Background:
A member of the RNA family "Bacterial large subunit ribosomal RNA", 227 nucleotides of a longer RNA. The match comes from Rfam's covariance-model search (2027 bits).
[Rfam]
RNA sequence: AAGUUUAUUUUUAUAGCAAGCUUAAUUUUUUAAAGUAGGCGUAGAUAAUUCAAGUUUUAAAAUGCUUUUAAGUUAUGAAAAUAAGACCCGAAACCGAGUGAUCUAACUAUGAACAGAUUGAAAAAUAGGUAAAACUAUUUGGAGGAUCGAACUCACAUAUGUGGCAAAAUAUGGAGAUGAUUUGUGGUUAGGAGUGAAAGGCUAAUCAAACUCGGAGAUAGCUGGUU
Numbered sequence: 001a002a003g004u005u006u007a008u009u010u011u012u013a014u015a016g017c018a019a020g021c022u023u024a025a026u027u028u029u030u031u032a033a034a035g036u037a038g039g040c041g042u043a044g045a046u047a048a049u050u051c052a053a054g055u056u057u058u059a060a061a062a063u064g065c066u067u068u069u070a071a072g073u074u075a076u077g078a079a080a081a082u083a084a085g086a087c088c089c090g091a092a093a094c095c096g097a098g099u100g101a102u103c104u105a106a107c108u109a110u111g112a113a114c115a116g117a118u119u120g121a122a123a124a125a126u127a128g129g130u131a132a133a134a135c136u137a138u139u140u141g142g143a144g145g146a147u148c149g150a151a152c153u154c155a156c157a158u159a160u161g162u163g164g165c166a167a168a169a170u171a172u173g174g175a176g177a178u179g180a181u182u183u184g185u186g187g188u189u190a191g192g193a194g195u196g197a198a199a200g201g202c203u204a205a206u207c208a209a210a211c212u213c214g215g216a217g218a219u220a221g222c223u224g225g226u227u
Stems, first nucleotide, its partner, number of pairs: 005084013020040004026034003044051002053066003057062001087225002090222001094215006103191011114179001116148004123140006152176003156173005193203003